[Rfam]
RNA sequence: AUGGAGUUCGUUUGGCAGGAAUCUAUGCAUGGGUCUUGAGUGGCAUGGAAUUUGGAGGUAGGAUUGCUAACUCCUUCCUCCAAAUUCCUCAGUUUGCUACGGUUAGCCAAUCACUUUCAUCUAAUUUCAGUACGUGUACUGGAGUUGAAUUUCGGCUAUUUUAUAGCAAACCGGCAAGUCACAGUUCGGCAAUCGGUAUUCGGCUAUGGGUCUU
Numbered sequence: 001a002u003g004g005a006g007u008u009c010g011u012u013u014g015g016c017a018g019g020a021a022u023c024u025a026u027g028c029a030u031g032g033g034u035c036u037u038g039a040g041u042g043g044c045a046u047g048g049a050a051u052u053u054g055g056a057g058g059u060a061g062g063a064u065u066g067c068u069a070a071c072u073c074c075u076u077c078c079u080c081c082a083a084a085u086u087c088c089u090c091a092g093u094u095u096g097c098u099a100c101g102g103u104u105a106g107c108c109a110a111u112c113a114c115u116u117u118c119a120u121c122u123a124a125u126u127u128c129a130g131u132a133c134g135u136g137u138a139c140u141g142g143a144g145u146u147g148a149a150u151u152u153c154g155g156c157u158a159u160u161u162u163a164u165a166g167c168a169a170a171c172c173g174g175c176a177a178g179u180c181a182c183a184g185u186u187c188g189g190c191a192a193u194c195g196g197u198a199u200u201c202g203g204c205u206a207u208g209g210g211u212c213u214u
Stems, first nucleotide, its partner, number of pairs: 054081003092171006109161002198211004
RNA: Early nodulin 40
Organism: Papaver nudicaule